[Rfam]
RNA sequence: UUCACGCGCUUUUAACGACACACACGUUUCGGCACAUACGGUAGGGUCCUAAUGUGAUUUAAUUAUGCCAUUAGGUUCCGUAUGGGAAGCGUGGAGGCUUAAC
Numbered sequence: 001u002u003c004a005c006g007c008g009c010u011u012u013u014a015a016c017g018a019c020a021c022a023c024a025c026g027u028u029u030c031g032g033c034a035c036a037u038a039c040g041g042u043a044g045g046g047u048c049c050u051a052a053u054g055u056g057a058u059u060u061a062a063u064u065a066u067g068c069c070a071u072u073a074g075g076u077u078c079c080g081u082a083u084g085g086g087a088a089g090c091g092u093g094g095a096g097g098c099u100u101a102a103c
Stems, first nucleotide, its partner, number of pairs: 023093008035084007043076001048075007
RNA: t44 RNA